The record is an 86-nucleotide RNA from Conexibacter woesei, which matches "ZMP/ZTP riboswitch aptamer (pfl RNA motif)" in Rfam. On this family, see Jones and Ferre-D'Amare, Nat Struct Mol Biol 2015: "Recognition of the bacterial alarmone ZMP through long-distance association of two RNA subdomains". Lineage of the source: Bacteria > Thermoleophilia > Conexibacteraceae > Conexibacter > Conexibacter woesei. A search with the family's covariance model found it, with a score of 59 bits.
[Rfam]
RNA sequence: GCAGGUCGUCGCGACUGGCGUUCGGAUGGAGCAACCAUCGGGGAGCGACGACGCCGUUCUUGCCGCCGCGCGCCUGGGCACCCCGU
Numbered sequence: 001g002c003a004g005g006u007c008g009u010c011g012c013g014a015c016u017g018g019c020g021u022u023c024g025g026a027u028g029g030a031g032c033a034a035c036c037a038u039c040g041g042g043g044a045g046c047g048a049c050g051a052c053g054c055c056g057u058u059c060u061u062g063c064c065g066c067c068g069c070g071c072g073c074c075u076g077g078g079c080a081c082c083c084c085g086u
Stems, first nucleotide, its partner, number of pairs: 005052008015042002017074005026038004065079003